Rfam assigns this 354-nucleotide part of an RNA from marine gamma proteobacterium HTCC2148 to the family "Bacterial small subunit ribosomal RNA". It scores 1582 bits against the family's covariance model. Pairs were carried over by alignment from the consensus structure, which is taken from published work. Its Rfam clan is "SSU clan". Taxonomically the source falls in Halieaceae (Bacteria, Pseudomonadati, Gammaproteobacteria, Cellvibrionales). Rfam links the family to the GO terms ribosome and structural constituent of ribosome.
RNA sequence: GGCGUAAAGCGCGCGUAGGCGGUUUGUUAAGUCGGAUGUGAAAGCCCUGGGCUCAACCUGGGAACUGCAUUCGAUACUGGCAAACUAGAGUGCGAGAGAGGGAGGUAGAAUUCCAUGUGUAGCGGUGAAAUGCGUAGAUAUGUGGAGGAAUACCGGUGGCGAAGGCGGCCUCCUGGCUCGACACUGACGCUGAGGUGCGAAAGCGUGGGGAGCAAACAGGAUUAGAUACCCUGGUAGUCCACGCCGUAAACGAUGUCUACUAGCCGUUGGGAAACUUGAUUUCUUAGUGGCGCAGCUAACGCACUAAGUAGACCGCCUGGGGAGUACGGCCGCAAGGUUAAAACUCAAAUGAAU
Numbered sequence: 001g002g003c004g005u006a007a008a009g010c011g012c013g014c015g016u017a018g019g020c021g022g023u024u025u026g027u028u029a030a031g032u033c034g035g036a037u038g039u040g041a042a043a044g045c046c047c048u049g050g051g052c053u054c055a056a057c058c059u060g061g062g063a064a065c066u067g068c069a070u071u072c073g074a075u076a077c078u079g080g081c082a083a084a085c086u087a088g089a090g091u092g093c094g095a096g097a098g099a100g101g102g103a104g105g106u107a108g109a110a111u112u113c114c115a116u117g118u119g120u121a122g123c124g125g126u127g128a129a130a131u132g133c134g135u136a137g138a139u140a141u142g143u144g145g146a147g148g149a150a151u152a153c154c155g156g157u158g159g160c161g162a163a164g165g166c167g168g169c170c171u172c173c174u175g176g177c178u179c180g181a182c183a184c185u186g187a188c189g190c191u192g193a194g195g196u197g198c199g200a201a202a203g204c205g206u207g208g209g210g211a212g213c214a215a216a217c218a219g220g221a222u223u224a225g226a227u228a229c230c231c232u233g234g235u236a237g238u239c240c241a242c243g244c245c246g247u248a249a250a251c252g253a254u255g256u257c258u259a260c261u262a263g264c265c266g267u268u269g270g271g272a273a274a275c276u277u278g279a280u281u282u283c284u285u286a287g288u289g290g291c292g293c294a295g296c297u298a299a300c301g302c303a304c305u306a307a308g309u310a311g312a313c314c315g316c317c318u319g320g321g322g323a324g325u326a327c328g329g330c331c332g333c334a335a336g337g338u339u340a341a342a343a344c345u346c347a348a349a350u351g352a353a354u
Base pairs, nucleotide, nucleotide: 001317002316003315009314011198012197013196014195016192018191019190020189022085023084024083025082026081027080028079030078031077032074033073034072035071036070037069038068039067040066046062047061048060049059050058051057089185090184091183093180094179095178096177100174101173102172103171104170105169106168107151111147112146113145114144115143116142117141118140122133123132124131159166160165203244204243205242206241207240208239212238213237217233218232219231220230255313256312257311258310259309260308263291264290265289266288267287268286269285270284271283272282273281274280295302296301319346320345321344328339329338330337331336